[Rfam]
RNA sequence: UCUGGUGUUGAUUGUCCAAACGCAAUUCUUGUAUUACUUCUCCACAGCCAGGAGUUGUGGGUGGACAUCAUGCCUCAGU
Number, nucleotide and partner (000 for none) at each position: 001u000002c078003u077004g076005g075006u000007g073008u000009u070010g069011a068012u067013u000014g066015u065016c064017c063018a062019a000020a000021c059022g058023c057024a056025a055026u054027u053028c052029u051030u050031g049032u000033a000034u000035u000036a000037c000038u000039u000040c000041u000042c000043c000044a000045c000046a000047g000048c000049c031050a030051g029052g028053a027054g026055u025056u024057g023058u022059g021060g000061g000062u018063g017064g016065a015066c014067a012068u011069c010070a009071u000072g000073c007074c000075u005076c004077a003078g002079u000